[Rfam]
RNA sequence: AUUCUGUCACAACGGCUUCCUGACGUGGCGGUAUAACUUAAUGGAGCA
Numbered sequence: 001a002u003u004c005u006g007u008c009a010c011a012a013c014g015g016c017u018u019c020c021u022g023a024c025g026u027g028g029c030g031g032u033a034u035a036a037c038u039u040a041a042u043g044g045a046g047c048a
Base pairs, nucleotide, nucleotide: 004031005030006029007028008027009026010025013022014021015047016046017045019044020043
RNA: SAM/SAH riboswitch aptamer
Organism: Yoonia rosea